[Rfam]
RNA sequence: CCCGGUAAUGAAUUACCGGGCUAUUUUCUUUAGUCCCUGCGGGACA
Numbered sequence: 001c002c003c004g005g006u007a008a009u010g011a012a013u014u015a016c017c018g019g020g021c022u023a024u025u026u027u028c029u030u031u032a033g034u035c036c037c038u039g040c041g042g043g044a045c046a
Base pairs, nucleotide, nucleotide: 001020002019003018004017005016006015007014008013033045034044035043036042037041

A member of the RNA family "Acido-Lenti-1 RNA" from Desulfomonile tiedjei, 46 nucleotides long.
A search with the family's covariance model found it, with a score of 40 bits.
The family's consensus secondary structure is taken from published work.
The family's RNA type in Rfam is small RNA.